[Rfam]
RNA sequence: CCAGUCGGCCGGACGGCCGCCGCGAUGAGCGGAGGAAAGUCCGGGCUCCAUACGGAUACGGCGCCGGAUAACGUCCGGCGGGGGCGACCCCAGGGAAAGCGCCACAGAAAGCAAACCGCCUCGAUUCAGGCCGCAAGGCCUUCGCGAGGCAAGGGUGAAAGGGUGCGGUAAGAGCGCACCGCGUCGGCGGCAACGUCGGCGGCAUGGCAAGCCCCGCCGGGAGCAAAACCGAAUAGGAGCGACGCGCGGCUCACGCCGCGGGCCUGUCCGUGGGCCAGUCGCUCGGGUUGGUUGCUCGAGGCGCCCGGAGACGGGCGUCCCAGAGGAAUGGCCGUCACGUCGGGGCCGCAAGGCUCCGGCCAUACAGAACCCGGCUUACAGGCCGGCUGGCGUU
Numbered sequence: 001c002c003a004g005u006c007g008g009c010c011g012g013a014c015g016g017c018c019g020c021c022g023c024g025a026u027g028a029g030c031g032g033a034g035g036a037a038a039g040u041c042c043g044g045g046c047u048c049c050a051u052a053c054g055g056a057u058a059c060g061g062c063g064c065c066g067g068a069u070a071a072c073g074u075c076c077g078g079c080g081g082g083g084g085c086g087a088c089c090c091c092a093g094g095g096a097a098a099g100c101g102c103c104a105c106a107g108a109a110a111g112c113a114a115a116c117c118g119c120c121u122c123g124a125u126u127c128a129g130g131c132c133g134c135a136a137g138g139c140c141u142u143c144g145c146g147a148g149g150c151a152a153g154g155g156u157g158a159a160a161g162g163g164u165g166c167g168g169u170a171a172g173a174g175c176g177c178a179c180c181g182c183g184u185c186g187g188c189g190g191c192a193a194c195g196u197c198g199g200c201g202g203c204a205u206g207g208c209a210a211g212c213c214c215c216g217c218c219g220g221g222a223g224c225a226a227a228a229c230c231g232a233a234u235a236g237g238a239g240c241g242a243c244g245c246g247c248g249g250c251u252c253a254c255g256c257c258g259c260g261g262g263c264c265u266g267u268c269c270g271u272g273g274g275c276c277a278g279u280c281g282c283u284c285g286g287g288u289u290g291g292u293u294g295c296u297c298g299a300g301g302c303g304c305c306c307g308g309a310g311a312c313g314g315g316c317g318u319c320c321c322a323g324a325g326g327a328a329u330g331g332c333c334g335u336c337a338c339g340u341c342g343g344g345g346c347c348g349c350a351a352g353g354c355u356c357c358g359g360c361c362a363u364a365c366a367g368a369a370c371c372c373g374g375c376u377u378a379c380a381g382g383c384c385g386g387c388u389g390g391c392g393u394u
Stems, first nucleotide, its partner, number of pairs: 001390010011379001012336007020032004037377003041374005046223004055269001059219005064078005079093001080091004094214002099212002101208003116154002118150006162180006181203001182201008227293004237284006261276005300319008

Shown here is a 394-nucleotide sequence from Roseiarcus fermentans, a member of the family "Bacterial RNase P class A". Lineage of the source: Bacteria > Pseudomonadati > Alphaproteobacteria > Hyphomicrobiales > Roseiarcus. It is annotated as a ribozyme. Ribonuclease P (RNase P) is a ubiquitous endoribonuclease, found in archaea, bacteria and eukarya as well as chloroplasts and mitochondria. Its best characterised activity is the generation of mature 5'-ends of tRNAs by cleaving the 5'-leader elements of precursor-tRNAs. Cellular RNase Ps are ribonucleoproteins. RNA from bacterial RNase Ps retains its catalytic activity in the absence of the protein subunit, i.e. it is a ribozyme.